This 83-nucleotide RNA sequence from Hibiscus syriacus belongs to the Rfam family "Small nucleolar RNA R16".
It is annotated as a C/D-box small nucleolar RNA.
RNA sequence: GAAGGCAAAUGAUGUAAUGUUUCUAUGCUAAACACUGAAUCUAAGUGUAGACAAAUAAACUCCGCUUAUUAUCCGAUGCCUUC
Dot-bracket structure: ..(((((.....................................................................)))))..